RNA sequence: UCGGAUAUGCGUAACUGGCGUAACGUGGAGUUCCACGAGGAAGCGCAUAUUGUCAUGCCGUACGCCUGGGCGGAGUAU
Numbered sequence: 001u002c003g004g005a006u007a008u009g010c011g012u013a014a015c016u017g018g019c020g021u022a023a024c025g026u027g028g029a030g031u032u033c034c035a036c037g038a039g040g041a042a043g044c045g046c047a048u049a050u051u052g053u054c055a056u057g058c059c060g061u062a063c064g065c066c067u068g069g070g071c072g073g074a075g076u077a078u
Stems, first nucleotide, its partner, number of pairs: 004051009015040002017066005025036004056072004
The record is a 78-nucleotide RNA from Paenibacillus sp. TCA20, which matches "ZMP/ZTP riboswitch aptamer (pfl RNA motif)" in Rfam. Pairs were carried over by alignment from the consensus structure, which is taken from published work. Rfam links the family to the GO terms one-carbon metabolic process and regulation of purine nucleotide biosynthetic process. Lineage of the source: Bacteria > Bacillati > Bacilli > Paenibacillaceae > Paenibacillus. A reference for the family is Jones and Ferre-D'Amare (2015), "Recognition of the bacterial alarmone ZMP through long-distance association of two RNA subdomains", Nat Struct Mol Biol.